[Rfam]
RNA sequence: GGCACAAAUCUCGCUAAGUAAUCACCACAGGUAACCAACGGCGGUUGCCCCACCUACGACAAAGACGUCGC
Numbered sequence: 001g002g003c004a005c006a007a008a009u010c011u012c013g014c015u016a017a018g019u020a021a022u023c024a025c026c027a028c029a030g031g032u033a034a035c036c037a038a039c040g041g042c043g044g045u046u047g048c049c050c051c052a053c054c055u056a057c058g059a060c061a062a063a064g065a066c067g068u069c070g071c
Stems, first nucleotide, its partner, number of pairs: 030049007

narK RNA: a 71-nucleotide RNA from Pseudomonas sp. GM55.
The sequence is in the family's curated seed alignment.
The family's consensus secondary structure is taken from published work.